Description: The record is a 113-nucleotide RNA sequence from Mus musculus, which matches "Small nucleolar RNA SNORA20" in Rfam. Rfam links the family to the GO terms RNA processing and nucleolus. NCBI's taxonomy places the organism under Eukaryota, Opisthokonta, Glires, Mus, Mus. The family is grouped with related families in Rfam's "SNORA20 clan". The family's consensus secondary structure was predicted with ILM.
RNA sequence: UUUCCCAUUAAUUUGCUGUUCUAGUCUGUCAUAGCAGUUAUACACAUGGGAUAAUAUUGGGCCAUUGUACAUAGAGAAGUGUGUUUUGUCCCUCCUGCAUGGUCCAGACAUUG
Numbered sequence: 001u002u003u004c005c006c007a008u009u010a011a012u013u014u015g016c017u018g019u020u021c022u023a024g025u026c027u028g029u030c031a032u033a034g035c036a037g038u039u040a041u042a043c044a045c046a047u048g049g050g051a052u053a054a055u056a057u058u059g060g061g062c063c064a065u066u067g068u069a070c071a072u073a074g075a076g077a078a079g080u081g082u083g084u085u086u087u088g089u090c091c092c093u094c095c096u097g098c099a100u101g102g103u104c105c106a107g108a109c110a111u112u113g
Stems, first nucleotide, its partner, number of pairs: 003051006015038006025031001057107008066099004074092001076090001077086003